A member of the RNA family "small nucleolar RNA snoR134" from Adiantum capillus-veneris, 146 nucleotides long. Rfam classes the family as an H/ACA-box small nucleolar RNA.
[Rfam]
RNA sequence: AUGCAUGGUUAGUAACCCCGGGCUGCCCUUAUCUGACCAAGAAAGGAAGGUUCGACCCUGUGAUCGUGCUACAGAACAUGCUCCGUGUUGCAGCCAUUUUUCCGUUUCCUCAUAGAAAUGGCUGUGUCAAAGAGGGCUCUACAUUU
Numbered sequence: 001a002u003g004c005a006u007g008g009u010u011a012g013u014a015a016c017c018c019c020g021g022g023c024u025g026c027c028c029u030u031a032u033c034u035g036a037c038c039a040a041g042a043a044a045g046g047a048a049g050g051u052u053c054g055a056c057c058c059u060g061u062g063a064u065c066g067u068g069c070u071a072c073a074g075a076a077c078a079u080g081c082u083c084c085g086u087g088u089u090g091c092a093g094c095c096a097u098u099u100u101u102c103c104g105u106u107u108c109c110u111c112a113u114a115g116a117a118a119u120g121g122c123u124g125u126g127u128c129a130a131a132g133a134g135g136g137c138u139c140u141a142c143a144u145u146u
Base pairs, nucleotide, nucleotide: 003069004068005067006066007065008064010063020057021056024055025053027050028049029048080137081136082135083134086129087128089126090125091124092123093122094121097117098116099115
Rfam 15.1 lists 792 matches to the family in 228 species.
NCBI's taxonomy places the organism under Eukaryota, Streptophyta, Streptophytina, Pteridineae, Adiantum.